[Rfam]
Nucleotides: 128
Stems, first nucleotide, its partner, number of pairs: 002058001004056004009050002012047004016042005022036002067121003071116001081114006087107002092101001
Number, partner (000 for none) and nucleotide at each position: 001000u002058g003000c004056c005055u006054u007053u008000g009050u010049g011000u012047u013046g014045c015044c016042c017041a018040u019039u020038u021000u022036u023035u024000u025000g026000a027000c028000a029000c030000c031000a032000c033000g034000c035023a036022g037000u038020g039019a040018a041017u042016g043000u044015g045014g046013u047012a048000u049010c050009a051000a052000a053007a054006a055005a056004g057000a058002c059000a060000u061000a062000a063000u064000u065000a066000a067121a068120c069119u070000c071116u072000g073000c074000a075000g076000c077000c078000a079000u080000u081114u082113u083112c084111u085110g086109u087107c088106c089000u090000u091000a092101a093000a094000u095000u096000u097000g098000g099000u100000u101092u102000c103000u104000u105000u106088g107087g108000a109086g110085u111084a112083g113082a114081a115000a116071a117000u118000a119069a120068g121067u122000a123000a124000c125000a126000g127000c128000u

Shown here is a 128-nucleotide sequence from Chrysochloris asiatica, a member of the family "Small nucleolar RNA SNORA13". The base pairs follow the family's consensus structure, which was predicted with CMfinder. Its Rfam clan is "SNORA13 clan".